The family of this 176-nucleotide RNA from Nocardia aurantiaca is "M-box riboswitch aptamer (ykoK leader)".
Rfam links the family to the GO terms response to magnesium ion and regulation of gene expression.
It scores 115 bits against the family's covariance model.
[Rfam]
RNA sequence: CGGUGCCGUCGUUAGCUGAGGCUCCUUCACGGAUACAGGCCGGCGAUCCCGAACGUCGAGAGACGCCCCGGAUCAGGACAGGUUUCCCCGAGCUAAGGGGAUGCCCCGACCGGCUCCCGCCACCUGUGGCGGGUUUACGCCGCGGAGUGCUGAAGGUCUUACGAGGGGUGGUACCC
Number, nucleotide and partner (000 for none) at each position: 001c000002g000003g000004u000005g172006c171007c170008g169009u168010c167011g162012u161013u096014a000015g157016c156017u155018g000019a000020g151021g150022c149023u000024c000025c147026u146027u145028c144029a000030c142031g141032g140033a000034u000035a000036c000037a000038g000039g114040c113041c112042g111043g110044c000045g074046a073047u072048c071049c070050c000051g000052a000053a000054c065055g064056u063057c062058g000059a000060g000061a000062g057063a056064c055065g054066c000067c000068c000069c000070g049071g048072a047073u046074c045075a000076g000077g000078a000079c000080a000081g105082g104083u103084u000085u000086c000087c099088c098089c097090g000091a000092g000093c000094u000095a000096a013097g089098g088099g087100g000101a000102u000103g083104c082105c081106c000107c000108g000109a000110c043111c042112g041113g040114c039115u000116c133117c132118c131119g130120c129121c000122a000123c000124c000125u000126g000127u000128g000129g120130c119131g118132g117133g116134u000135u000136u000137a000138c000139g000140c032141c031142g030143c000144g028145g027146a026147g025148u000149g022150c021151u020152g000153a000154a000155g017156g016157u015158c000159u000160u000161a012162c011163g000164a000165g000166g000167g010168g009169u008170g007171g006172u005173a000174c000175c000176c000